The record is a 74-nucleotide sequence from Verticiella sediminum, which matches "Plasmid transferred anti-sense RNA" in Rfam. It is annotated as an antitoxin RNA. The family's consensus secondary structure is taken from published work. Taxonomically the source falls in Verticiella (Bacteria, Pseudomonadati, Betaproteobacteria, Burkholderiales).

RNA sequence: UUGCCAUUUUUCACCUCUCUCACAGGUGGAUAGUGGAAGUGUCGGCCGGCGUUGCAUCGUCGGCCGACGCGCUU
Numbered sequence: 001u002u003g004c005c006a007u008u009u010u011u012c013a014c015c016u017c018u019c020u021c022a023c024a025g026g027u028g029g030a031u032a033g034u035g036g037a038a039g040u041g042u043c044g045g046c047c048g049g050c051g052u053u054g055c056a057u058c059g060u061c062g063g064c065c066g067a068c069g070c071g072c073u074u
Base pairs, nucleotide, nucleotide: 004036005035006034012028013027014026015025016024039070040069041068042067043066044065045064046063047062048061049060050059